[Rfam]
RNA sequence: CCUGCUCCCAGAGGCAUUUGGGGACCUCCUAUGAUGUAUAUGUGUCAGUAUGUGGCAGAGAGGAGAGAGGCUAUAUCUGUGCUCAGUGUUCUGACCUACAACACUUGAAUGAUUAGUAGACUAACAUU
Numbered sequence: 001c002c003u004g005c006u007c008c009c010a011g012a013g014g015c016a017u018u019u020g021g022g023g024a025c026c027u028c029c030u031a032u033g034a035u036g037u038a039u040a041u042g043u044g045u046c047a048g049u050a051u052g053u054g055g056c057a058g059a060g061a062g063g064a065g066a067g068a069g070g071c072u073a074u075a076u077c078u079g080u081g082c083u084c085a086g087u088g089u090u091c092u093g094a095c096c097u098a099c100a101a102c103a104c105u106u107g108a109a110u111g112a113u114u115a116g117u118a119g120a121c122u123a124a125c126a127u128u
Stems, first nucleotide, its partner, number of pairs: 002058005007052001010049001013046003019040001022037001024035001026033001065125001068122002071119004080111002083108004087103004
The family of this 128-nucleotide RNA sequence from Rattus norvegicus is "Small nucleolar RNA SNORA17". Clan: SNORA17 clan. From the family's description: snoRNA ACA 17 belongs to the H/ACA family of snoRNAs and is predicted to guide pseudouridylation of the 28S rRNA at positions U4659 and U4598. It shares the same host gene together with ACA43. NB This family has a high threshold value to exclude a large number of closely related sequences that do not appear to have conserved H and ACA boxes, and may be pseudogenes. A reference for the family is Ofengand and Bakin (1997), "Mapping to nucleotide resolution of pseudouridine residues in large subunit ribosomal RNAs from representative eukaryotes, prokaryotes, archaebacteria, mitochondria and chloroplasts", J Mol Biol. Rfam 15.1 lists 5,784 matches to the family in 673 species. Gene Ontology terms of the family: nucleolus and RNA processing.